[Rfam]
A member of the RNA family "FMN riboswitch aptamer (RFN element)" from Thermomonas haemolytica, 173 nucleotides long.
The base pairs follow the family's consensus structure, which is taken from published work.

RNA sequence: AAACGUCUUCAGGGCGGGGUGGAAGUCCCCACCGGCGGUAGGCGCGGCGUUCCCUCGGCGAGGGGCGGCCCGCGCGAGCCCGCGAGCGCUUCCCGGCCGGGCUGGCGGGAAGGUCAGCAGACCCGGUCGCAUGCCGGGGCCGACGGUCACAGUCCGGAAGGAAGAAGACGCAC
Numbered sequence: 001a002a003a004c005g006u007c008u009u010c011a012g013g014g015c016g017g018g019g020u021g022g023a024a025g026u027c028c029c030c031a032c033c034g035g036c037g038g039u040a041g042g043c044g045c046g047g048c049g050u051u052c053c054c055u056c057g058g059c060g061a062g063g064g065g066c067g068g069c070c071c072g073c074g075c076g077a078g079c080c081c082g083c084g085a086g087c088g089c090u091u092c093c094c095g096g097c098c099g100g101g102c103u104g105g106c107g108g109g110a111a112g113g114u115c116a117g118c119a120g121a122c123c124c125g126g127u128c129g130c131a132u133g134c135c136g137g138g139g140c141c142g143a144c145g146g147u148c149a150c151a152g153u154c155c156g157g158a159a160g161g162a163a164g165a166a167g168a169c170g171c172a173c
Stems, first nucleotide, its partner, number of pairs: 004170007017029003031153002033142002035083004086118002122138005144156003
A search with the family's covariance model found it, with a score of 78 bits. The RFN element is a highly conserved domain that is found frequently in the 5'-untranslated regions of prokaryotic mRNAs that encode for flavin mononucleotide (FMN) biosynthesis and transport proteins.